[Rfam]
The record is an 88-nucleotide sequence from Fusobacterium mortiferum, which matches "SAM riboswitch aptamer (S box leader)" in Rfam.
Nucleotides: 088
Stems, first nucleotide, its partner, number of pairs: 001088002004085005013042005021031003025077004043069004048065002050062004073080001
Number, partner (000 for none) and nucleotide at each position: 001088u002087a003000a004085c005084c006083a007082u008081c009000a010000a011000g012000a013042g014041a015040a016039a017038c018000u019000g020000a021031g022030g023029g024000a025077c026076u027075g028074g029023c030022c031021c032000u033000a034000g035000g036000a037000c038017g039016u040015u041014u042013c043069a044068g045067c046066a047000a048065c049064c050062u051061g052060c053059u054000u055000a056000a057000a058000a059053a060052g061051u062050g063000u064049g065048g066046u067045g068044c069043u070000a071000a072000u073080u074028c075027c076026a077025g078000a079000a080073a081008g082007a083006u084005g085004g086000a087002u088001a

Description
Pairs were carried over by alignment from the consensus structure, which is taken from published work. Its family is annotated with regulation of gene expression in the Gene Ontology. The organism belongs to Fusobacterium mortiferum, within Bacteria.